[Rfam]
RNA sequence: AAUAAGCGCUAGGGGUGCCUUAACCCGGAAGGAAUAAGGCUGAGAAUAUACCCUCUGAACCUGAACCUGGAUAAUACCAGCGGAGGAAAGCAUGAAAAAUUUCUC
Numbered sequence: 001a002a003u004a005a006g007c008g009c010u011a012g013g014g015g016u017g018c019c020u021u022a023a024c025c026c027g028g029a030a031g032g033a034a035u036a037a038g039g040c041u042g043a044g045a046a047u048a049u050a051c052c053c054u055c056u057g058a059a060c061c062u063g064a065a066c067c068u069g070g071a072u073a074a075u076a077c078c079a080g081c082g083g084a085g086g087a088a089a090g091c092a093u094g095a096a097a098a099a100u101u102u103c104u105c
Stems, first nucleotide, its partner, number of pairs: 006093001008091003011054004016048001017040005060086003067080004